The record is a 32-nucleotide sequence, which matches "L31-Firmicutes ribosomal protein leader" in Rfam. It is annotated as a cis-regulatory leader. On this family, see Eckert and Weinberg, BMC Microbiol 2020: "Discovery of 20 novel ribosomal leader candidates in bacteria and archaea".
RNA sequence: CUAUGGCUUAUUAUAAGCUAUGGCGGAAGGAG
Numbered sequence: 001c002u003a004u005g006g007c008u009u010a011u012u013a014u015a016a017g018c019u020a021u022g023g024c025g026g027a028a029g030g031a032g
Stems, first nucleotide, its partner, number of pairs: 001023010